This 79-nucleotide sequence from Takifugu flavidus belongs to the Rfam family "mir-30 microRNA precursor family". Taxonomically the source falls in Takifugu (Eukaryota, Deuterostomia, Ctenosquamata, Tetraodontoidei). A reference for the family is Ambros (2001), "microRNAs: tiny regulators with great potential", Cell. From the family's description: This family consists of the mammalian microRNA (miRNA) precursor mir-30a. Animal miRNAs are transcribed as ~70nt precursors and subsequently processed by the Dicer enzyme to give a ~22nt product. In this case the mature sequence comes from both the 3' (miR-30) and 5' (mir-97-6) arms of the precursor. Pairs were carried over by alignment from the consensus structure, which was predicted with PFOLD.
RNA sequence: GGAGGAGCUGUAAACAUCCUUGACUGGAAGCUGGGGUUUAAAUUGUGAAGGCUUUCAGUCGGAUGUUUACAGCAUCUUA
Numbered sequence: 001g002g003a004g005g006a007g008c009u010g011u012a013a014a015c016a017u018c019c020u021u022g023a024c025u026g027g028a029a030g031c032u033g034g035g036g037u038u039u040a041a042a043u044u045g046u047g048a049a050g051g052c053u054u055u056c057a058g059u060c061g062g063a064u065g066u067u068u069a070c071a072g073c074a075u076c077u078u079a
Stems, first nucleotide, its partner, number of pairs: 002078004008072012023059010